[Rfam]
RNA sequence: CAGUUAAAAAGCUCGUAGUUGGAUUUCGGGUGGGUUCUAGCGGUCCGCCUAUGGUGAGUACUGCUAUGGCCUUCCUUUCUGUCGGGGACGGGCUUCUGGGCUUCACUGUCCGGGACUCGGAGUCGACGUGGUUACUUUGAGUAAAUUAGAGUGUUCAAAGCAGGCUUACGCCAGAAUACUUUAGCAUGGAAUAACACGAUAGGACUCUGGCCUAUCUUGUUGGUCUGUAGGACCGGAGUAAUGAUUAAGAGGGACAGUCGGGGGCAUUCGUAUUUCAUUGUCAGAGGUGAAAUUCUUGGAUUUAUGAAAGACGAACUACUGCGAAAGCAUUUGCCAAGGAUGUUUUCAUUAAUCAAGAACGAAAGUUGGGGGCUCGAAGACGAUUAGAUACCGUCGUAGUCUCAACCAUAAACGAUGCCGACUAGGGAUUGGCGAAUGUUUUUUCAAUGACUUCGCCAGCACCUUAUGAGAAAUCAAAGUUUUUGGGUUCCGGGGGGAGUAUGGUCGCAAGGCUGAAACUUAAAGGAAU
Numbered sequence: 001c002a003g004u005u006a007a008a009a010a011g012c013u014c015g016u017a018g019u020u021g022g023a024u025u026u027c028g029g030g031u032g033g034g035u036u037c038u039a040g041c042g043g044u045c046c047g048c049c050u051a052u053g054g055u056g057a058g059u060a061c062u063g064c065u066a067u068g069g070c071c072u073u074c075c076u077u078u079c080u081g082u083c084g085g086g087g088a089c090g091g092g093c094u095u096c097u098g099g100g101c102u103u104c105a106c107u108g109u110c111c112g113g114g115a116c117u118c119g120g121a122g123u124c125g126a127c128g129u130g131g132u133u134a135c136u137u138u139g140a141g142u143a144a145a146u147u148a149g150a151g152u153g154u155u156c157a158a159a160g161c162a163g164g165c166u167u168a169c170g171c172c173a174g175a176a177u178a179c180u181u182u183a184g185c186a187u188g189g190a191a192u193a194a195c196a197c198g199a200u201a202g203g204a205c206u207c208u209g210g211c212c213u214a215u216c217u218u219g220u221u222g223g224u225c226u227g228u229a230g231g232a233c234c235g236g237a238g239u240a241a242u243g244a245u246u247a248a249g250a251g252g253g254a255c256a257g258u259c260g261g262g263g264g265c266a267u268u269c270g271u272a273u274u275u276c277a278u279u280g281u282c283a284g285a286g287g288u289g290a291a292a293u294u295c296u297u298g299g300a301u302u303u304a305u306g307a308a309a310g311a312c313g314a315a316c317u318a319c320u321g322c323g324a325a326a327g328c329a330u331u332u333g334c335c336a337a338g339g340a341u342g343u344u345u346u347c348a349u350u351a352a353u354c355a356a357g358a359a360c361g362a363a364a365g366u367u368g369g370g371g372g373c374u375c376g377a378a379g380a381c382g383a384u385u386a387g388a389u390a391c392c393g394u395c396g397u398a399g400u401c402u403c404a405a406c407c408a409u410a411a412a413c414g415a416u417g418c419c420g421a422c423u424a425g426g427g428a429u430u431g432g433c434g435a436a437u438g439u440u441u442u443u444u445c446a447a448u449g450a451c452u453u454c455g456c457c458a459g460c461a462c463c464u465u466a467u468g469a470g471a472a473a474u475c476a477a478a479g480u481u482u483u484u485g486g487g488u489u490c491c492g493g494g495g496g497g498a499g500u501a502u503g504g505u506c507g508c509a510a511g512g513c514u515g516a517a518a519c520u521u522a523a524a525g526g527a528a529u
Stems, first nucleotide, its partner, number of pairs: 001492001003490001009489001011360001013358002018353003251347004255342002258339002263335004269313002273309006280302001284295003321328002365406006375399001379395004417488003420481003424464003429459008438451003468475002494521003503514004
About this RNA: A member of the RNA family "Eukaryotic small subunit ribosomal RNA" from Scenedesmus sp. NREL 46B-D3, 529 nucleotides of a longer RNA. Its family is annotated with ribosome and structural constituent of ribosome in the Gene Ontology. The family is grouped with related families in Rfam's "SSU clan". The source organism's lineage runs through Eukaryota, Chlorophyta, core chlorophytes, Sphaeropleales and Scenedesmus.